[Rfam]
RNA sequence: GGAUGUGGCUCUGGAGAAUCUCUAAGGAGUGCCGAAGGUGCAAGAUGUAAUAUAUAACAUUACAUUAAUCUCUCAGGCAAAAGGACAGAGUAUAAUAA
Numbered sequence: 001g002g003a004u005g006u007g008g009c010u011c012u013g014g015a016g017a018a019u020c021u022c023u024a025a026g027g028a029g030u031g032c033c034g035a036a037g038g039u040g041c042a043a044g045a046u047g048u049a050a051u052a053u054a055u056a057a058c059a060u061u062a063c064a065u066u067a068a069u070c071u072c073u074c075a076g077g078c079a080a081a082a083g084g085a086c087a088g089a090g091u092a093u094a095a096u097a098a
Base pairs, nucleotide, nucleotide: 008091009090010089011088012087013086020029021028022027031078032077033076034074035073038072040070044065